The record is a 141-nucleotide RNA sequence from Arboricoccus pini, which matches "TPP riboswitch aptamer (THI element)" in Rfam. NCBI's taxonomy places the organism under Bacteria, Pseudomonadati, Alphaproteobacteria, Geminicoccaceae, Arboricoccus. It scores 64 bits against the family's covariance model. Rfam links the family to the GO term thiamine pyrophosphate binding.

[Rfam]
RNA sequence: UGGAUCUCAACGGGGUGUUCCUUAAACAUAAUCGACCGCGCAGGCGGCCGGGUUUUUAAGGAGCUGAGAGGUGCGGCUUGGCACGACCCGUCGAACCUGAUCCGGCUCAUACCGGCGAAGGGAUUUGAGAUGCGCCAGCCC
Numbered sequence: 001u002g003g004a005u006c007u008c009a010a011c012g013g014g015g016u017g018u019u020c021c022u023u024a025a026a027c028a029u030a031a032u033c034g035a036c037c038g039c040g041c042a043g044g045c046g047g048c049c050g051g052g053u054u055u056u057u058a059a060g061g062a063g064c065u066g067a068g069a070g071g072u073g074c075g076g077c078u079u080g081g082c083a084c085g086a087c088c089c090g091u092c093g094a095a096c097c098u099g100a101u102c103c104g105g106c107u108c109a110u111a112c113c114g115g116c117g118a119a120g121g122g123a124u125u126u127g128a129g130a131u132g133c134g135c136c137a138g139c140c141c
Base pairs, nucleotide, nucleotide: 006129007128008127009126010125011090012089013088014087017064018063019062020061021060022059023058024057025056026055071084072083073082074081096121097120098119102115103114104113105112